The record is a 79-nucleotide RNA sequence from Callorhinchus milii, which matches "mir-132 microRNA precursor family" in Rfam. For this family Rfam cites "The developmental miRNA profiles of zebrafish as determined by small RNA cloning" (Chen et al., Genes Dev, 2005). Rfam 15.1 lists 1,023 matches to the family in 386 species. The source organism's lineage runs through Eukaryota, Opisthokonta, Deuterostomia, Gnathostomata and Callorhinchus. The base pairs follow the family's consensus structure, which was predicted with RNAalifold. A search with the family's covariance model found it, with a score of 69 bits. Its family is annotated with RISC complex and miRNA-mediated post-transcriptional gene silencing in the Gene Ontology.
[Rfam]
RNA sequence: UUCCAUGGUGACCGUGGCUUUCGAUUGUUAUUGUCAGUGUGGUGUAGUAACAGUCUACAGCCAUGGUUGUUUGGACAGG
Numbered sequence: 001u002u003c004c005a006u007g008g009u010g011a012c013c014g015u016g017g018c019u020u021u022c023g024a025u026u027g028u029u030a031u032u033g034u035c036a037g038u039g040u041g042g043u044g045u046a047g048u049a050a051c052a053g054u055c056u057a058c059a060g061c062c063a064u065g066g067u068u069g070u071u072u073g074g075a076c077a078g079g
Stems, first nucleotide, its partner, number of pairs: 012066002015063004023055010